[Rfam]
RNA: Vertebrate telomerase RNA
Organism: Taeniopygia guttata
RNA sequence: UUUGCCGGGGUGGGCAGGCCCUAUGGCCAACUAACCCUAAUGGCGGCCGCGCCCCUCACGCUCGCCCGCUGUUUUACUCGCUGACUUUCAGCGGGCAAAGGGAGCGGCCUAGGGGAAGGGGGUGGGGGAAAAGAGUUCCGGCCUCAAAAAAAAAAAAAAAAAAAAAAAGCCAGCGAGGGGGAUCCACACCCCGGCCCACCCUGGGGUCCCUUGGGGUCCCUGUCCCUUCUCCGUGACCGGGGAUGCUCCGGCCCUCGCCCCCCGUGGAGGCCGCGGUCGGCGGGCUCAGCGCCGCUGCCGCCGCGAAGAGUUCGUCUCUGUCAGCCUCGGCGGGGCCGGCGCGCCCGCCCCGGGCAGCCCCAGCACAGCAAAACGGGCGCGGCGCCGCUGGGCGCUGAGCAGAGCCGCCCCCCGAGCCGUGGGGUGCGCGGUGGGCGCCGCCCCGACACCC
Numbered sequence: 001u002u003u004g005c006c007g008g009g010g011u012g013g014g015c016a017g018g019c020c021c022u023a024u025g026g027c028c029a030a031c032u033a034a035c036c037c038u039a040a041u042g043g044c045g046g047c048c049g050c051g052c053c054c055c056u057c058a059c060g061c062u063c064g065c066c067c068g069c070u071g072u073u074u075u076a077c078u079c080g081c082u083g084a085c086u087u088u089c090a091g092c093g094g095g096c097a098a099a100g101g102g103a104g105c106g107g108c109c110u111a112g113g114g115g116a117a118g119g120g121g122g123u124g125g126g127g128g129a130a131a132a133g134a135g136u137u138c139c140g141g142c143c144u145c146a147a148a149a150a151a152a153a154a155a156a157a158a159a160a161a162a163a164a165a166a167a168a169g170c171c172a173g174c175g176a177g178g179g180g181g182a183u184c185c186a187c188a189c190c191c192c193g194g195c196c197c198a199c200c201c202u203g204g205g206g207u208c209c210c211u212u213g214g215g216g217u218c219c220c221u222g223u224c225c226c227u228u229c230u231c232c233g234u235g236a237c238c239g240g241g242g243a244u245g246c247u248c249c250g251g252c253c254c255u256c257g258c259c260c261c262c263c264g265u266g267g268a269g270g271c272c273g274c275g276g277u278c279g280g281c282g283g284g285c286u287c288a289g290c291g292c293c294g295c296u297g298c299c300g301c302c303g304c305g306a307a308g309a310g311u312u313c314g315u316c317u318c319u320g321u322c323a324g325c326c327u328c329g330g331c332g333g334g335g336c337c338g339g340c341g342c343g344c345c346c347g348c349c350c351c352g353g354g355c356a357g358c359c360c361c362a363g364c365a366c367a368g369c370a371a372a373a374c375g376g377g378c379g380c381g382g383c384g385c386c387g388c389u390g391g392g393c394g395c396u397g398a399g400c401a402g403a404g405c406c407g408c409c410c411c412c413c414g415a416g417c418c419g420u421g422g423g424g425u426g427c428g429c430g431g432u433g434g435g436c437g438c439c440g441c442c443c444c445g446a447c448a449c450c451c
Base pairs, nucleotide, nucleotide: 005204006203007202008201009200010199011198012197013196014195015194017192018191019181020180021179022178051105052104054102055101064096065095066094067093068092069091070090071089080174081173082172083171085169086167087166088165211363212362213361214360215359216358217357234356235355237353238352239351240350241349242348248339249338250337251336252335253334254333256332257331258330259329272305273304274303275302276301278300279299280298281297283293284292285291307319308318309317310316375443376442377441378440381439382438383437384436385435386434405431406430407429408428409424410423411422412421